Source information
The family of this 124-nucleotide RNA from Frischella perrara is "RtT RNA". The organism belongs to Frischella, within Bacteria. Gene Ontology term of the family: cellular response to amino acid starvation. The family's RNA type in Rfam is cis-regulatory element. A search with the family's covariance model found it, with a score of 85 bits.

RNA sequence: AUUAUCUGCAUUUUGAGAGGAUGAGAACCGAUCAGAGGUUCGAGCCGAGCGUAGCGAGACAACGUUGCUUUAGCAACGCCCCGUAGGGCGAGCAUGACAUGCGAAUAAUCCUCUCUCGCGUUGA
Numbered sequence: 001a002u003u004a005u006c007u008g009c010a011u012u013u014u015g016a017g018a019g020g021a022u023g024a025g026a027a028c029c030g031a032u033c034a035g036a037g038g039u040u041c042g043a044g045c046c047g048a049g050c051g052u053a054g055c056g057a058g059a060c061a062a063c064g065u066u067g068c069u070u071u072a073g074c075a076a077c078g079c080c081c082c083g084u085a086g087g088g089c090g091a092g093c094a095u096g097a098c099a100u101g102c103g104a105a106u107a108a109u110c111c112u113c114u115c116u117c118g119c120g121u122u123g124a
Stems, first nucleotide, its partner, number of pairs: 015115008029090002032088002039085001041083002046056002063078006